This 287-nucleotide RNA sequence from Plenodomus lingam belongs to the Rfam family "A. fumigatus sRNA Afu_309". It scores 110 bits against the family's covariance model.

RNA sequence: CUUCUCUCACAAACAAACGACCUGUGCCAGCUGUCCCAUUCCAUGUCUUUGGGCGUGUGUUACGGUUGAUGGCUGGCAGUUCGUCCGUCUCACGGAGCCUUUUCUUCUUCCUCAUGGAUGGGCUUCGGACGACAGGUCGCAGAGCAAGUUGGCGCCAGGUUGGAAGCCUGAGAUCACCGCAAGGUUGGAGCUCGGUGGAAGACGUGGUGCCUGGCCAACUAAUUCCUGUUCCCUUAUGCUAGGCCGUCGGCUCUUGAUGCUUGGGACAAACCUAGUCGGCUACAAUU
Numbered sequence: 001c002u003u004c005u006c007u008c009a010c011a012a013a014c015a016a017a018c019g020a021c022c023u024g025u026g027c028c029a030g031c032u033g034u035c036c037c038a039u040u041c042c043a044u045g046u047c048u049u050u051g052g053g054c055g056u057g058u059g060u061u062a063c064g065g066u067u068g069a070u071g072g073c074u075g076g077c078a079g080u081u082c083g084u085c086c087g088u089c090u091c092a093c094g095g096a097g098c099c100u101u102u103u104c105u106u107c108u109u110c111c112u113c114a115u116g117g118a119u120g121g122g123c124u125u126c127g128g129a130c131g132a133c134a135g136g137u138c139g140c141a142g143a144g145c146a147a148g149u150u151g152g153c154g155c156c157a158g159g160u161u162g163g164a165a166g167c168c169u170g171a172g173a174u175c176a177c178c179g180c181a182a183g184g185u186u187g188g189a190g191c192u193c194g195g196u197g198g199a200a201g202a203c204g205u206g207g208u209g210c211c212u213g214g215c216c217a218a219c220u221a222a223u224u225c226c227u228g229u230u231c232c233c234u235u236a237u238g239c240u241a242g243g244c245c246g247u248c249g250g251c252u253c254u255u256g257a258u259g260c261u262u263g264g265g266a267c268a269a270a271c272c273u274a275g276u277c278g279g280c281u282a283c284a285a286u287u
Stems, first nucleotide, its partner, number of pairs: 018139008026077005032071004036065002039062001041059001043056005086131005093120002098117002151211007159203001166196001168194001170193003174189002177184002214280003218276004230266004238260002242252004
It is annotated as a small RNA. A reference for the family is Jochl et al. (2008), "Small ncRNA transcriptome analysis from Aspergillus fumigatus suggests a novel mechanism for regulation of protein synthesis", Nucleic Acids Res.